[Rfam]
RNA sequence: UCCCAAUGCUUCCUGUCAGGACACUUUCUACACUCUUCAAUGGAAGAUCGUCUGUUACGUCAUUGGGAGAUUGAAAUUUUGAGCUUGCUGUUCCGACGUCGUUUUGACUAGGGACUGACUGGGUCCCGUUUUGGGGCACCGUCGUUAGCUCGAGUUUGUUUCAUUUUGAGUUGAAAUCUACCUCUGCCCGUUCCGGGUGGUUAGGUGGUAGAUUUCUUAGUAAUGAUUCAUACAUCU
Numbered sequence: 001u002c003c004c005a006a007u008g009c010u011u012c013c014u015g016u017c018a019g020g021a022c023a024c025u026u027u028c029u030a031c032a033c034u035c036u037u038c039a040a041u042g043g044a045a046g047a048u049c050g051u052c053u054g055u056u057a058c059g060u061c062a063u064u065g066g067g068a069g070a071u072u073g074a075a076a077u078u079u080u081g082a083g084c085u086u087g088c089u090g091u092u093c094c095g096a097c098g099u100c101g102u103u104u105u106g107a108c109u110a111g112g113g114a115c116u117g118a119c120u121g122g123g124u125c126c127c128g129u130u131u132u133g134g135g136g137c138a139c140c141g142u143c144g145u146u147a148g149c150u151c152g153a154g155u156u157u158g159u160u161u162c163a164u165u166u167u168g169a170g171u172u173g174a175a176a177u178c179u180a181c182c183u184c185u186g187c188c189c190g191u192u193c194c195g196g197g198u199g200g201u202u203a204g205g206u207g208g209u210a211g212a213u214u215u216c217u218u219a220g221u222a223a224u225g226a227u228u229c230a231u232a233c234a235u236c237u
Stems, first nucleotide, its partner, number of pairs: 003066005019053004024046005077154002081151004090115005098108003122140001123137006157230002161226004173216004179210004184200007
Notes:
The record is a 237-nucleotide RNA from Monosporascus sp. CRB-9-2, which matches "Small nucleolar RNA snR191" in Rfam. The match comes from Rfam's covariance-model search (62 bits). Pairs were carried over by alignment from the consensus structure, which was predicted with WAR. Clan: SNORA74 clan.